RNA sequence: GGAGGUAGGCCCUCCACGGUCGCUUUACAGGAAGAGGCCGUAAACCCCCGCGAGCUGCUGCGGUGAAUGAGCCGUGGUGGUGAGCGUCGCGGAAAAGGCGCGCCGUGGAGCGCGUCAGGU
Dot-bracket structure: (((((.....)))))((((((.((((....)))).))))))....(.((((((((.(((.((((......)))).))).)).....))))))....((((((........))))))..).
Source information:
Rfam assigns this 120-nucleotide sequence from Phytoactinopolyspora mesophila to the family "Group II catalytic intron D1-D4-2". The family has 144 seed sequences and 1,231 matches in Rfam 15.1. The match comes from Rfam's covariance-model search (113 bits). Group II introns are found in rRNA, tRNA and mRNA of organelles in fungi, plants and protists, and also in mRNA in bacteria.